RNA sequence: GUCUUCUCAUUGAGCUCCGUUCUGUCUCUUGGUGGCAGUUUAUGGAUUCGCACGAGAAGAAGAAUAAUUCACAGAGCUAGCAUUAUUUUACCUCUAUGGAGGUAUAUUUGGCUGUUUUGUGAGACAUUC
Dot-bracket structure: ..((((((.....(((((...(((((.......))))).....)))...))..)))))).........((((((................((((....))))..............)))))).......
Numbered sequence: 001g002u003c004u005u006c007u008c009a010u011u012g013a014g015c016u017c018c019g020u021u022c023u024g025u026c027u028c029u030u031g032g033u034g035g036c037a038g039u040u041u042a043u044g045g046a047u048u049c050g051c052a053c054g055a056g057a058a059g060a061a062g063a064a065u066a067a068u069u070c071a072c073a074g075a076g077c078u079a080g081c082a083u084u085a086u087u088u089u090a091c092c093u094c095u096a097u098g099g100a101g102g103u104a105u106a107u108u109u110g111g112c113u114g115u116u117u118u119g120u121g122a123g124a125c126a127u128u129c
Stems, first nucleotide, its partner, number of pairs: 003059006014051002016046003022038005069122006091102004
The record is a 129-nucleotide sequence from Otolemur garnettii, which matches "Small nucleolar RNA SNORA75" in Rfam. The source organism's lineage runs through Eukaryota, Opisthokonta, Mammalia, Galagidae and Otolemur. The family's RNA type in Rfam is H/ACA-box small nucleolar RNA. U23 belongs to the H/ACA class of snoRNAs. snoRNAs bind a number of proteins (including dyskerin, Gar1p and Nop10p in the case of the H/ACA class) to form snoRNP complexes. Rfam links the family to the GO terms nucleolus and RNA processing. A reference for the family is Ganot et al. (1997), "The family of box ACA small nucleolar RNAs is defined by an evolutionarily conserved secondary structure and ubiquitous sequence elements essential for RNA accumulation", Genes Dev.